[Rfam]
RNA sequence: UGGCGGGGGAGCACCACAACCGGAGGAGCCUGCGGUUUAAUUGGACUCAACGCCGGACAUCUCACCGGUCCCGACAGUAGUAAUGACAGUCAGGUUGACGACUUUACUCGACGCUACUGAGAGGAGGUGCAUGGCCGCCGUCAGCUCGUACCGUGAGGCGUCCUGUUAAGUCAGGCAACGAGCGAGACCCAACCACUUCUAGUUGCCAGCAAACCCCUGCGGUGGUUGGGUCACUAGGAGGACUGCAUUGCUAAAUGGAGGAAGGAUGGGCAACGGUAGGUCAGUAUGCUCGAAUGGACCGGGCAACCGCGGGCUACAAUGGCUAUGAAAGUGGGACCCACGCCGAGAGGCGAACUUAUCUCCAACGUAUUCGUAUUCGGAUUGCGGCUGAACCCCCCCGUAAAACUGGAUCGGAUUAUACCGGUUGCAAAACGCCGGGAAAACUUCCUGCUUUUGACACCGCCGUAAAAACCCAGUGGGGUCCGGAGAGCCUUUACGGAGGGCUCAAUCUGGCUCGAGGGGGUUAUUCGUACAAGGACGGAGGAAUCGGGUGGAGUCGUAACAAGGUAGCCGUAGAGGAAUCUGCGGCUGGAUCACCUC
Numbered sequence: 001u002g003g004c005g006g007g008g009g010a011g012c013a014c015c016a017c018a019a020c021c022g023g024a025g026g027a028g029c030c031u032g033c034g035g036u037u038u039a040a041u042u043g044g045a046c047u048c049a050a051c052g053c054c055g056g057a058c059a060u061c062u063c064a065c066c067g068g069u070c071c072c073g074a075c076a077g078u079a080g081u082a083a084u085g086a087c088a089g090u091c092a093g094g095u096u097g098a099c100g101a102c103u104u105u106a107c108u109c110g111a112c113g114c115u116a117c118u119g120a121g122a123g124g125a126g127g128u129g130c131a132u133g134g135c136c137g138c139c140g141u142c143a144g145c146u147c148g149u150a151c152c153g154u155g156a157g158g159c160g161u162c163c164u165g166u167u168a169a170g171u172c173a174g175g176c177a178a179c180g181a182g183c184g185a186g187a188c189c190c191a192a193c194c195a196c197u198u199c200u201a202g203u204u205g206c207c208a209g210c211a212a213a214c215c216c217c218u219g220c221g222g223u224g225g226u227u228g229g230g231u232c233a234c235u236a237g238g239a240g241g242a243c244u245g246c247a248u249u250g251c252u253a254a255a256u257g258g259a260g261g262a263a264g265g266a267u268g269g270g271c272a273a274c275g276g277u278a279g280g281u282c283a284g285u286a287u288g289c290u291c292g293a294a295u296g297g298a299c300c301g302g303g304c305a306a307c308c309g310c311g312g313g314c315u316a317c318a319a320u321g322g323c324u325a326u327g328a329a330a331g332u333g334g335g336a337c338c339c340a341c342g343c344c345g346a347g348a349g350g351c352g353a354a355c356u357u358a359u360c361u362c363c364a365a366c367g368u369a370u371u372c373g374u375a376u377u378c379g380g381a382u383u384g385c386g387g388c389u390g391a392a393c394c395c396c397c398c399c400g401u402a403a404a405a406c407u408g409g410a411u412c413g414g415a416u417u418a419u420a421c422c423g424g425u426u427g428c429a430a431a432a433c434g435c436c437g438g439g440a441a442a443a444c445u446u447c448c449u450g451c452u453u454u455u456g457a458c459a460c461c462g463c464c465g466u467a468a469a470a471a472c473c474c475a476g477u478g479g480g481g482u483c484c485g486g487a488g489a490g491c492c493u494u495u496a497c498g499g500a501g502g503g504c505u506c507a508a509u510c511u512g513g514c515u516c517g518a519g520g521g522g523g524u525u526a527u528u529c530g531u532a533c534a535a536g537g538a539c540g541g542a543g544g545a546a547u548c549g550g551g552u553g554g555a556g557u558c559g560u561a562a563c564a565a566g567g568u569a570g571c572c573g574u575a576g577a578g579g580a581a582u583c584u585g586c587g588g589c590u591g592g593a594u595c596a597c598c599u600c
Base pairs, nucleotide, nucleotide: 001457004456007455008454009453010452011451012450013449016445021414023412024411025317027315028314029313030312031311032310033309034308035307036306041056042055043054044053065302066301067300068299069298070297071296075119076118077117078116080114081113088108089107090106092104093103094102123291126290127289128288129287132286133285134281135280136279137277138276139275140274144183145182146181147180148179149178151158152157162175163174164173165172189269190268191267196240197239198238199237200236201235202234206230207229210228211227212226214224216222243261244260246258247256248255249254321372322371324369325368326367327366333362334361335360341352342351343350344349383400384399386397421438422437423436424435425434460566462563464559465558471552472551473550474549476547477546480539481533482532484530485529486528487527489525490524491523492522493521494520495519497517498516499515568591569590570589571588572587573586574585575584576583577582
Description
This 600-nucleotide part of an RNA belongs to the Rfam family "Archaeal small subunit ribosomal RNA". Rfam's curators put it in the seed alignment. For this family Rfam cites "Crystal structure of the ribosome at 5.5 A resolution" (Yusupov et al., Science, 2001). The family has 86 seed sequences and 709 matches in Rfam 15.1. Rfam links the family to the GO terms structural constituent of ribosome and ribosome.